[Rfam]
RNA sequence: GACUAGAGUCACAUCCCGACACAGAACUUGUCCUGGUGUGCUACAGUACAAUUUGCUGGUCUUGAUUCACUGGGGGGGGAUAAUUAAUGUCCCCAUUAGUGCCCAGAUCAGAAACAUAG
Dot-bracket structure: ((((..((.((((((..((((.......))))..))))))))..))).)......(((((((.(...((((((.((((.((.......)))))).)))))).).)))))))........
A member of the RNA family "Small nucleolar RNA SNORA3/SNORA45 family" from Marmota monax, 119 nucleotides long.
The members of this family belong to the H/ACA class of snoRNAs which are thought to guide the sites of modification of uridines to pseudouridines. This family includes mouse snoMBI-28 and human homologues ACA3 (SNORA3) and ACA3-2 (SNORA45). Both ACA3 and ACA3-2 share the same host gene. MBI-28, ACA3 and ACA3-2 are all predicted to guide the pseudouridylation of residues in 28S rRNA.
The family is grouped with related families in Rfam's "SNORA3 clan".
The base pairs follow the family's consensus structure, which was predicted with RNAalifold.
A search with the family's covariance model found it, with a score of 95 bits.
Rfam links the family to the GO terms RNA processing and nucleolus.
On this family, see Huttenhofer et al., EMBO J 2001: "RNomics: an experimental approach that identifies 201 candidates for novel, small, non-messenger RNAs in mouse".